[Rfam]
Nucleotides: 176
Stems, first nucleotide, its partner, number of pairs: 135173004140168001145165003
Number, partner (000 for none) and nucleotide at each position: 001000a002000c003000u004000a005000a006000u007000c008000g009000a010000g011000c012000a013000c014000g015000a016000c017000a018000c019000u020000c021000g022000g023000a024000c025000u026000a027000a028000u029000g030000g031000u032000g033000a034000a035000g036000u037000u038000g039000a040000u041000a042000a043000c044000u045000a046000u047000a048000u049000a050000a051000g052000c053000u054000u055000u056000u057000a058000g059000g060000u061000g062000c063000c064000a065000g066000g067000u068000a069000u070000c071000g072000a073000u074000a075000u076000g077000u078000u079000c080000a081000a082000a083000a084000u085000a086000a087000a088000c089000a090000a091000g092000g093000u094000u095000g096000a097000g098000u099000a100000g101000u102000a103000g104000a105000a106000u107000u108000a109000a110000a111000g112000g113000a114000u115000g116000c117000a118000u119000a120000c121000c122000u123000g124000a125000a126000a127000a128000a129000a130000a131000a132000u133000c134000a135173a136172a137171u138170g139000a140168u141000u142000a143000c144000c145165c146164a147163a148000a149000c150000u151000g152000g153000u154000a155000u156000u157000u158000a159000u160000u161000u162000a163147u164146u165145g166000u167000u168140a169000a170138c171137a172136u173135u174000c175000c176000g
Rfam assigns this 176-nucleotide RNA from Musa troglodytarum to the family "Antisense RNA which regulates isiA expression". The match comes from Rfam's covariance-model search (58 bits). On this family, see Duhring et al., Proc Natl Acad Sci U S A 2006: "An internal antisense RNA regulates expression of the photosynthesis gene isiA".